[Rfam]
RNA sequence: CCAGAGGUCGUCGGGGAGUAGCCGCCGCUCGUGACGAGCGGGAUCGCGUCAACAUGCUCGUGGGGAACCCACGUGGCGCGAUCGGCCGGAGGGCAUGGCAAGACCGGAGCGCCGUCGGGACCCCCACGCGGGUCGCGGCGAGGCGCAUCUCGGGUCAGCUCGCCGGAAUUCCGUGAU
Numbered sequence: 001c002c003a004g005a006g007g008u009c010g011u012c013g014g015g016g017a018g019u020a021g022c023c024g025c026c027g028c029u030c031g032u033g034a035c036g037a038g039c040g041g042g043a044u045c046g047c048g049u050c051a052a053c054a055u056g057c058u059c060g061u062g063g064g065g066a067a068c069c070c071a072c073g074u075g076g077c078g079c080g081a082u083c084g085g086c087c088g089g090a091g092g093g094c095a096u097g098g099c100a101a102g103a104c105c106g107g108a109g110c111g112c113c114g115u116c117g118g119g120a121c122c123c124c125c126a127c128g129c130g131g132g133u134c135g136c137g138g139c140g141a142g143g144c145g146c147a148u149c150u151c152g153g154g155u156c157a158g159c160u161c162g163c164c165g166g167a168a169u170u171c172c173g174u175g176a177u
Base pairs, nucleotide, nucleotide: 026040027039028038042083043082044081045080046079047078048077049076050075051074059073060072061071062070063069084177086175087173088172089171090170